RNA sequence: AGGCCUGGAGAGAGAAGCAGGAUCUGAUCUGAAGCCUCCAAGGCAGCUGUUGAUCAGCCCUUGCCUUUCUCUUUCUCUCAG
Number, nucleotide and partner (000 for none) at each position: 001a000002g000003g000004c000005c000006u000007g000008g073009a072010g071011a070012g069013a068014g067015a066016a000017g064018c063019a062020g061021g000022a000023u000024c057025u056026g055027a054028u053029c052030u000031g000032a000033a048034g047035c046036c000037u000038c000039c000040a000041a000042g000043g000044c000045a000046g035047c034048u033049g000050u000051u000052g029053a028054u027055c026056a025057g024058c000059c000060c000061u020062u019063g018064c017065c000066u015067u014068u013069c012070u011071c010072u009073u008074u000075c000076u000077c000078u000079c000080a000081g000